RNA sequence: GUAUUACCAUGAGUUCCCUGCAGGCACUUCAUGAGGCACUAUAUAUUUCAAACGCCACCAUGAAGUGUUUUGGGGGAACUCUUGGUGCCAC
Dot-bracket structure: ....(((((.(((((((((..((((((((((((..(...................)..))))))))))))..))))))))).)))))....
RNA: mir-395 microRNA precursor family
Organism: Aegilops tauschii